[Rfam]
Description
mir-459 microRNA precursor family: an 81-nucleotide sequence from Menidia menidia. The family's consensus secondary structure was predicted with RNAalifold. The match comes from Rfam's covariance-model search (78 bits). Gene Ontology terms of the family: miRNA-mediated post-transcriptional gene silencing and RISC complex. The organism belongs to Menidia, within Eukaryota.
RNA sequence: CAUGUUGCUGUCAGUAACAAGGAUUCAUCCUGUUGUGUUGCUGCUGGCUGACAGGAAAUCGUUGUUACUGGGGGCACAUGC
Numbered sequence: 001c002a003u004g005u006u007g008c009u010g011u012c013a014g015u016a017a018c019a020a021g022g023a024u025u026c027a028u029c030c031u032g033u034u035g036u037g038u039u040g041c042u043g044c045u046g047g048c049u050g051a052c053a054g055g056a057a058a059u060c061g062u063u064g065u066u067a068c069u070g071g072g073g074g075c076a077c078a079u080g081c
Stems, first nucleotide, its partner, number of pairs: 011071009022060004029055007037048003